RNA sequence: GGCGAUAAACGCGGCUCGGAAUAAGCGUAGCGGACCCGGGGGCAGUACCCGGCGCCUCCACCACCUUCCCGGCAGCGGCGGCUUGGCCCGUCCGCUGCCGUCCACGGGGGCGAAACAGGCUCGACGCGCGCGGUAAAGGGGUCGUUUUCGCCCGGCAUGGCUCCGCCGUUAUCGGGCCGAACCACAAGUGCCAACGACAACAGCCGCGAGGCUGUGGCGCUCGCUGCCUGA
Number, nucleotide and partner (000 for none) at each position: 001g152002g151003c150004g149005a148006u000007a000008a000009a000010c000011g000012c000013g000014g142015c141016u140017c139018g000019g000020a000021a000022u000023a000024a000025g000026c130027g129028u128029a000030g127031c126032g125033g000034a000035c000036c052037c051038g050039g049040g048041g000042g000043c000044a000045g000046u000047a000048c040049c039050c038051g037052g036053c112054g111055c110056c109057u108058c107059c106060a000061c000062c000063a000064c000065c000066u000067u000068c000069c000070c000071g000072g000073c000074a000075g000076c000077g000078g000079c000080g000081g000082c000083u000084u000085g000086g000087c000088c000089c000090g000091u000092c000093c000094g000095c000096u000097g000098c000099c000100g000101u000102c000103c000104a000105c000106g059107g058108g057109g056110g055111c054112g053113a000114a000115a000116c000117a000118g000119g000120c000121u000122c000123g000124a000125c032126g031127c030128g028129c027130g026131c000132g000133g000134u000135a000136a000137a000138g000139g017140g016141g015142u014143c000144g000145u000146u000147u000148u005149c004150g003151c002152c001153c168154g167155g166156c165157a000158u000159g000160g000161c000162u000163c000164c000165g156166c155167c154168g153169u000170u000171a000172u000173c000174g000175g000176g000177c000178c000179g000180a000181a000182c000183c000184a000185c000186a000187a000188g000189u000190g000191c000192c000193a000194a000195c000196g000197a000198c000199a000200a000201c000202a000203g000204c000205c000206g000207c000208g000209a000210g000211g000212c000213u000214g000215u000216g000217g000218c000219g000220c000221u000222c000223g000224c000225u000226g000227c000228c000229u000230g000231a000
Background: Rfam assigns this 231-nucleotide RNA from Caldovatus sediminis to the family "permuted transfer-messenger RNA". Its family is annotated with RNA catabolic process in the Gene Ontology. A search with the family's covariance model found it, with a score of 132 bits. The source organism's lineage runs through Bacteria, Pseudomonadati, Pseudomonadota, Acetobacterales and Caldovatus.